RNA: Ribosomal protein L10 leader
Organism: Butyrivibrio hungatei
RNA sequence: AAAAAGACAGACAACCGUCCGAAGACAGUAGGUGUUCGUAAGAACAUAAUGAUGAUCCGCCUACCGAGGAAAAGUUAUUAUUUAGACUUUUUGCCUCUCGAUGUCUUCGAGGGGCUUUUUUUUCGGCGGU
Numbered sequence: 001a002a003a004a005a006g007a008c009a010g011a012c013a014a015c016c017g018u019c020c021g022a023a024g025a026c027a028g029u030a031g032g033u034g035u036u037c038g039u040a041a042g043a044a045c046a047u048a049a050u051g052a053u054g055a056u057c058c059g060c061c062u063a064c065c066g067a068g069g070a071a072a073a074g075u076u077a078u079u080a081u082u083u084a085g086a087c088u089u090u091u092u093g094c095c096u097c098u099c100g101a102u103g104u105c106u107u108c109g110a111g112g113g114g115c116u117u118u119u120u121u122u123u124c125g126g127c128g129g130u
Stems, first nucleotide, its partner, number of pairs: 028064006034045003093115009